A member of the RNA family "Purine riboswitch aptamer" from an Erysipelotrichia bacterium, 102 nucleotides long. Pairs were carried over by alignment from the consensus structure, which is taken from published work. The match comes from Rfam's covariance-model search (76 bits).
[Rfam]
RNA sequence: AAACUUUGUUCAGCUAAACACCGUAUAUCCUCGCUAAUAAGGUGCGAGAGUUUCUACCCGACAACCGUAAAAUGUCGGACUACGAUGGUUGAACACUGCAUU
Numbered sequence: 001a002a003a004c005u006u007u008g009u010u011c012a013g014c015u016a017a018a019c020a021c022c023g024u025a026u027a028u029c030c031u032c033g034c035u036a037a038u039a040a041g042g043u044g045c046g047a048g049a050g051u052u053u054c055u056a057c058c059c060g061a062c063a064a065c066c067g068u069a070a071a072a073u074g075u076c077g078g079a080c081u082a083c084g085a086u087g088g089u090u091g092a093a094c095a096c097u098g099c100a101u102u
Stems, first nucleotide, its partner, number of pairs: 019087002022084004030048005058078006